[Rfam]
RNA: MIR2655 microRNA precursor family
Nucleotides: 266
Stems, first nucleotide, its partner, number of pairs: 002264007024242003028238003033233005039227001044226001046224002
Number, partner (000 for none) and nucleotide at each position: 001000c002264c003263c004262a005261u006260a007259a008258a009000u010000a011000a012000u013000a014000a015000a016000a017000a018000a019000a020000u021000c022000u023000g024242u025241u026240u027000a028238g029237g030236u031000c032000c033233c034232u035231u036230a037229a038000c039227u040000u041000u042000a043000u044226u045000u046224a047223a048000a049000g050000u051000a052000u053000g054000a055000g056000u057000u058000u059000g060000g061000u062000u063000c064000u065000u066000u067000a068000u069000g070000u071000u072000a073000a074000u075000u076000u077000a078000a079000u080000u081000c082000a083000a084000a085000a086000a087000a088000a089000c090000g091000u092000u093000a094000a095000g096000u097000u098000u099000u100000g101000g102000u103000c104000c105000c106000u107000u108000a109000a110000c111000u112000u113000a114000u115000u116000u117000c118000a119000u120000u121000a122000g123000u124000a125000u126000u127000a128000g129000u130000u131000u132000g133000g134000u135000c136000u137000c138000u139000u140000a141000u142000c143000u144000u145000a146000u147000u148000u149000a150000a151000u152000u153000a154000g155000u156000a157000u158000u159000a160000g161000u162000u163000u164000a165000g166000u167000c168000c169000c170000u171000a172000a173000a174000u175000u176000u177000a178000a179000u180000g181000u182000u183000u184000u185000u186000u187000u188000u189000u190000a191000a192000u193000u194000a195000a196000a197000u198000u199000a200000a201000u202000a203000a204000a205000a206000a207000g208000g209000a210000u211000c212000a213000a214000a215000c216000u217000a218000a219000u220000a221000c222000c223047u224046u225000a226044a227039a228000a229037u230036u231035a232034a233033g234000u235000g236030a237029c238028c239000u240026a241025a242024a243000c244000g245000g246000a247000u248000u249000u250000u251000u252000u253000u254000a255000u256000u257000a258008u259007u260006u261005a262004u263003g264002g265000g266000a